Group II catalytic intron D1-D4-6: a 226-nucleotide RNA from Schaedlerella arabinosiphila. On this family, see Bonen and Vogel, Trends Genet 2001: "The ins and outs of group II introns". It scores 134 bits against the family's covariance model. The source organism's lineage runs through Bacteria, Bacillati, Lachnospirales, Lachnospiraceae and Schaedlerella. The family has 174 seed sequences and 1,617 matches in Rfam 15.1. The base pairs follow the family's consensus structure.
RNA sequence: AAAGUCCUACGGUGUAAGGUACAAGCUAUACCGCACCAAGCGAGUCUUGGGUAGACAGCAGAGAUGUUGUCUGCUAAGCGUAGACAGCGAGAUUGCAGGGCAUAACUGCACAUAGCUUCGAUAUGAAAAUGAAAGUGGGAAGGCAGAGGUGCUCCUAUACACUGAAAGCAACAUAACUGUAGUCACUAAGAGCGAGAAUACAGUUGCUUCCCCGGAGUUUUGAGGU
Numbered sequence: 001a002a003a004g005u006c007c008u009a010c011g012g013u014g015u016a017a018g019g020u021a022c023a024a025g026c027u028a029u030a031c032c033g034c035a036c037c038a039a040g041c042g043a044g045u046c047u048u049g050g051g052u053a054g055a056c057a058g059c060a061g062a063g064a065u066g067u068u069g070u071c072u073g074c075u076a077a078g079c080g081u082a083g084a085c086a087g088c089g090a091g092a093u094u095g096c097a098g099g100g101c102a103u104a105a106c107u108g109c110a111c112a113u114a115g116c117u118u119c120g121a122u123a124u125g126a127a128a129a130u131g132a133a134a135g136u137g138g139g140a141a142g143g144c145a146g147a148g149g150u151g152c153u154c155c156u157a158u159a160c161a162c163u164g165a166a167a168g169c170a171a172c173a174u175a176a177c178u179g180u181a182g183u184c185a186c187u188a189a190g191a192g193c194g195a196g197a198a199u200a201c202a203g204u205u206g207c208u209u210c211c212c213c214g215g216a217g218u219u220u221u222g223a224g225g226u
Base pairs, nucleotide, nucleotide: 011037012036013035014034018032019031021029025193026192040088041087044085045084046083047082048080049079050075051074052073053072054071055070056069057068058067059066060065112220115218116217117216118215119214120213137212138211139210140209141208142207143169144168148163149162150161151160174206175205176204177203178202179201180200181199183197184196